[Rfam]
RNA: Small nucleolar RNA Z112
Organism: Triticum aestivum
RNA sequence: GCACAGGUGAGUUCCUCUUGUUCUGCAUGACUUUGUACAUCAUGUGCUUCUCUGCUGUUGCAAGUGUCCAUCCUUGUAUUAUAAGCUAUGUGGCUUGGUCUGGGAUGGAAAUACUCAUUUGCACCGGUUUGAUUCAGCUUUGGGUUUGACUAUAAAUUGGUCUCUGUUGAAU
Dot-bracket structure: (..((...................................................(.(((((((((((((((....((((.(..(.....)..)))))...)))))))......)))))))))...........................................))..)